[Rfam]
RNA: Small nucleolar RNA SNORA77
RNA sequence: GCAGACUCACUCUGCAUCCGGCUGCAGCCCCAGGCGGGUGCUUUUUCCGUCUGCCACAGAAACAUCCCGGGGUGCUGUGACCACCUCGUCCUGUCAAGGGUGAUACAGCCGUCUGGGAACACAGGG
Numbered sequence: 001g002c003a004g005a006c007u008c009a010c011u012c013u014g015c016a017u018c019c020g021g022c023u024g025c026a027g028c029c030c031c032a033g034g035c036g037g038g039u040g041c042u043u044u045u046u047c048c049g050u051c052u053g054c055c056a057c058a059g060a061a062a063c064a065u066c067c068c069g070g071g072g073u074g075c076u077g078u079g080a081c082c083a084c085c086u087c088g089u090c091c092u093g094u095c096a097a098g099g100g101u102g103a104u105a106c107a108g109c110c111g112u113c114u115g116g117g118a119a120c121a122c123a124g125g126g
Base pairs, nucleotide, nucleotide: 001054002053003052004051005050006049014041015040016039017038018037019036020035022033023032024031066117067116068115069114070113071112074109075108076107077106078105079104082102083101084100085099086098